[Rfam]
RNA sequence: AGCAGCAGAGUGCAUCACAAUUAUGCUAGGCCCUCGCCUUUUACUAGGGCCUACCGUGUGAUGUACUCAUUCAAAUGCUGUGUAUCAAUCUUUGGAAUCAGCACUUUCUAGUGCAU
Numbered sequence: 001a002g003c004a005g006c007a008g009a010g011u012g013c014a015u016c017a018c019a020a021u022u023a024u025g026c027u028a029g030g031c032c033c034u035c036g037c038c039u040u041u042u043a044c045u046a047g048g049g050c051c052u053a054c055c056g057u058g059u060g061a062u063g064u065a066c067u068c069a070u071u072c073a074a075a076u077g078c079u080g081u082g083u084a085u086c087a088a089u090c091u092u093u094g095g096a097a098u099c100a101g102c103a104c105u106u107u108c109u110a111g112u113g114c115a116u
Stems, first nucleotide, its partner, number of pairs: 003080004009067011027053008096116001101114005
RNA: U5 spliceosomal RNA
Organism: Paxillus involutus